[Rfam]
Shown here is a 60-nucleotide sequence from Cyprinus carpio, a member of the family "mir-723 microRNA precursor family".
The match comes from Rfam's covariance-model search (75 bits).
Rfam links the family to the GO terms RISC complex and miRNA-mediated post-transcriptional gene silencing.
The base pairs follow the family's consensus structure, which was predicted with RNAalifold.

RNA sequence: CACAGUUUUGAAUGAUGUUACUUCUUUCAAACUGAGGAAGACAUCAAUUAAAUCUGUGCU
Numbered sequence: 001c002a003c004a005g006u007u008u009u010g011a012a013u014g015a016u017g018u019u020a021c022u023u024c025u026u027u028c029a030a031a032c033u034g035a036g037g038a039a040g041a042c043a044u045c046a047a048u049u050a051a052a053u054c055u056g057u058g059c060u
Stems, first nucleotide, its partner, number of pairs: 002057004007052004013046006021040007